[Rfam]
RNA sequence: AAGAUGUCUAAUCUUUAUCCAGGGCCUUGUCCAAGACCCGUGGAACAAUUUUUGGCUGCCUUCCCAGGAGGGAGGGCAA
Numbered sequence: 001a002a003g004a005u006g007u008c009u010a011a012u013c014u015u016u017a018u019c020c021a022g023g024g025c026c027u028u029g030u031c032c033a034a035g036a037c038c039c040g041u042g043g044a045a046c047a048a049u050u051u052u053u054g055g056c057u058g059c060c061u062u063c064c065c066a067g068g069a070g071g072g073a074g075g076g077c078a079a
Stems, first nucleotide, its partner, number of pairs: 022039003026035003057078009
RNA: SmY spliceosomal RNA